[Rfam]
RNA sequence: UUGGGCAAGGUGCGGGGCUAGGGCUAACAGCAGUCUUACUGAAGGUUUCCUGGAAACCACGCACAUGCUGUUGCCACUAACCUCAACC
Numbered sequence: 001u002u003g004g005g006c007a008a009g010g011u012g013c014g015g016g017g018c019u020a021g022g023g024c025u026a027a028c029a030g031c032a033g034u035c036u037u038a039c040u041g042a043a044g045g046u047u048u049c050c051u052g053g054a055a056a057c058c059a060c061g062c063a064c065a066u067g068c069u070g071u072u073g074c075c076a077c078u079a080a081c082c083u084c085a086a087c088c
Stems, first nucleotide, its partner, number of pairs: 009088003014084004019079003022075003026072007044058006
A member of the RNA family "mir-744 microRNA precursor family" from Equus caballus, 88 nucleotides long.
On this family, see Takada et al., Nucleic Acids Res 2006: "Mouse microRNA profiles determined with a new and sensitive cloning method".
Lineage of the source: Eukaryota > Chordata > Mammalia > Boreoeutheria > Equus.
The family's consensus secondary structure was predicted with RNAalifold.